Description:
This 230-nucleotide sequence from Ammonifex degensii belongs to the Rfam family "permuted transfer-messenger RNA". The literature on the family includes a 2010 paper in RNA Biol by Mao et al., "Variations on the tmRNA gene". A search with the family's covariance model found it, with a score of 48 bits. The family's consensus secondary structure is taken from published work. By type it is a non-coding RNA gene. Lineage of the source: Bacteria > Bacillati > Bacillota > Clostridia > Ammonifex degensii.
RNA sequence: GCUUGCCCUGGCGAAGGGCAAAAAGCUUUACGAUCGGCGGGCCGAUCUGGCCGAACGAGCCGCCCGCCGGGAGAUGGAAAGGGCGCUAAAAAGGCGGAUAUAAGCGGGGGCGACGGGUUUCGACGGGGGAUUGGUUGCAGGAGAAGCGAGCCGGGGAGGCCACUAACCCCGUAAAACAAAGUGGCAAAAAAAUAAACGCCAACAACGAGCGCGUAGCUCUGGCCGCGUAA
Numbered sequence: 001g002c003u004u005g006c007c008c009u010g011g012c013g014a015a016g017g018g019c020a021a022a023a024a025g026c027u028u029u030a031c032g033a034u035c036g037g038c039g040g041g042c043c044g045a046u047c048u049g050g051c052c053g054a055a056c057g058a059g060c061c062g063c064c065c066g067c068c069g070g071g072a073g074a075u076g077g078a079a080a081g082g083g084c085g086c087u088a089a090a091a092a093g094g095c096g097g098a099u100a101u102a103a104g105c106g107g108g109g110g111c112g113a114c115g116g117g118u119u120u121c122g123a124c125g126g127g128g129g130a131u132u133g134g135u136u137g138c139a140g141g142a143g144a145a146g147c148g149a150g151c152c153g154g155g156g157a158g159g160c161c162a163c164u165a166a167c168c169c170c171g172u173a174a175a176a177c178a179a180a181g182u183g184g185c186a187a188a189a190a191a192a193u194a195a196a197c198g199c200c201a202a203c204a205a206c207g208a209g210c211g212c213g214u215a216g217c218u219c220u221g222g223c224c225g226c227g228u229a230a
Stems, first nucleotide, its partner, number of pairs: 001151005017138001026129003031125002036064005065112004152171004